This 118-nucleotide RNA sequence from Isoptericola dokdonensis belongs to the Rfam family "SAM (S-adenosyl methionine) riboswitch aptamer". For this family Rfam cites "The aptamer core of SAM-IV riboswitches mimics the ligand-binding site of SAM-I riboswitches" (Weinberg et al., RNA, 2008). From the family's description: SAM-IV is a mRNA element that regulates gene expression via direct sensing of S-adenosylmethionine (SAM or AdoMet).
RNA sequence: GGUCACGAGCGACCGGCAACACGCCCUCCGCGUGCCGGUCCGGCAACCGCGCCCCUCGCGCACGGUGCCCCAGGAGGAAGACCCGCCCCGCGCCGACAGGCGCAGGGAAGAGCGAGGU
Numbered sequence: 001g002g003u004c005a006c007g008a009g010c011g012a013c014c015g016g017c018a019a020c021a022c023g024c025c026c027u028c029c030g031c032g033u034g035c036c037g038g039u040c041c042g043g044c045a046a047c048c049g050c051g052c053c054c055c056u057c058g059c060g061c062a063c064g065g066u067g068c069c070c071c072a073g074g075a076g077g078a079a080g081a082c083c084c085g086c087c088c089c090g091c092g093c094c095g096a097c098a099g100g101c102g103c104a105g106g107g108a109a110g111a112g113c114g115a116g117g118u
Base pairs, nucleotide, nucleotide: 001083002082003081004080009041012039013038014037015036016035017034022032023031042069043068044067047065048064049063051061052060086107087106088105090103091102092101093100094099